[Rfam]
RNA: SAM (S-adenosyl methionine) riboswitch aptamer
Organism: Streptacidiphilus jiangxiensis
RNA sequence: GGUCAUGAGUGUCAGCGUGUGGCCCUGGCUUGCUGACCGGCAACCCUCGAUACAGCGGUGGGGUGCUCCAGGUGACGACCCGACAGGACAGGGCUGUCCUGUAAGCGCGAGGC
Numbered sequence: 001g002g003u004c005a006u007g008a009g010u011g012u013c014a015g016c017g018u019g020u021g022g023c024c025c026u027g028g029c030u031u032g033c034u035g036a037c038c039g040g041c042a043a044c045c046c047u048c049g050a051u052a053c054a055g056c057g058g059u060g061g062g063g064u065g066c067u068c069c070a071g072g073u074g075a076c077g078a079c080c081c082g083a084c085a086g087g088a089c090a091g092g093g094c095u096g097u098c099c100u101g102u103a104a105g106c107g108c109g110a111g112g113c
Stems, first nucleotide, its partner, number of pairs: 001080004009038001011037006021030002039067003044063003048058001083102008